[Rfam]
RNA sequence: AAGUGGACUAGGUCGGGCAGUUAGGCCCUGCCCGUCACCCGCGAGAGAGUCUUCAGCGGGGACCGAACGCCGGCGGCGUCCGGGGCGCCCGUCGCGGGCCCCGGAAGCCGACGUCGAAGCCUCGUCCGCCGGGGACAGCGGUCCGUCGGGCCGCACCCGCAGGGGUGCUCGCCCGCGGCUCGUCGGCGGCACCGGGUCAGGCGCGGAAGCGAGCAGCCCACCGCCGAACGCCCGUCGCUCGUCGGGUCGCGGGGCCGAGGAGGCACCCGGGAUUCCCCGCGGCGGAACCCCCGGGCAACGCCGGCCCGUCCACCA
Numbered sequence: 001a002a003g004u005g006g007a008c009u010a011g012g013u014c015g016g017g018c019a020g021u022u023a024g025g026c027c028c029u030g031c032c033c034g035u036c037a038c039c040c041g042c043g044a045g046a047g048a049g050u051c052u053u054c055a056g057c058g059g060g061g062a063c064c065g066a067a068c069g070c071c072g073g074c075g076g077c078g079u080c081c082g083g084g085g086c087g088c089c090c091g092u093c094g095c096g097g098g099c100c101c102c103g104g105a106a107g108c109c110g111a112c113g114u115c116g117a118a119g120c121c122u123c124g125u126c127c128g129c130c131g132g133g134g135a136c137a138g139c140g141g142u143c144c145g146u147c148g149g150g151c152c153g154c155a156c157c158c159g160c161a162g163g164g165g166u167g168c169u170c171g172c173c174c175g176c177g178g179c180u181c182g183u184c185g186g187c188g189g190c191a192c193c194g195g196g197u198c199a200g201g202c203g204c205g206g207a208a209g210c211g212a213g214c215a216g217c218c219c220a221c222c223g224c225c226g227a228a229c230g231c232c233c234g235u236c237g238c239u240c241g242u243c244g245g246g247u248c249g250c251g252g253g254g255c256c257g258a259g260g261a262g263g264c265a266c267c268c269g270g271g272a273u274u275c276c277c278c279g280c281g282g283c284g285g286a287a288c289c290c291c292c293g294g295g296c297a298a299c300g301c302c303g304g305c306c307c308g309u310c311c312a313c314c315a
Stems, first nucleotide, its partner, number of pairs: 003313006011064004015033006038060005069305007078296005083290003089285010100271005107264003112259001114257001119255007126245003130241004134236003138232001139230002141180001143178004148173002153168006183227007194219004202211003
This 315-nucleotide RNA from Halorarum salinum belongs to the Rfam family "Archaeal signal recognition particle RNA". The literature on the family includes a 2011 paper in Nat Struct Mol Biol by Hainzl et al., "Structural basis of signal-sequence recognition by the signal recognition particle". A search with the family's covariance model found it, with a score of 159 bits. NCBI's taxonomy places the organism under Archaea, Methanobacteriota, Halobacteria, Haloferacaceae, Halorarum.